[Rfam]
Rfam assigns this 33-nucleotide RNA sequence from Pedobacter antarcticus to the family "DUF805b RNA".
RNA sequence: AAGGAAAAGCCGAAAACCUUUAACAGAGUAGGC
Numbered sequence: 001a002a003g004g005a006a007a008a009g010c011c012g013a014a015a016a017c018c019u020u021u022a023a024c025a026g027a028g029u030a031g032g033c
Stems, first nucleotide, its partner, number of pairs: 001020004009033003
Dot-bracket structure: ((((....[[[.....))))..........]]]
Clan: DUF805 clan. It scores 36 bits against the family's covariance model.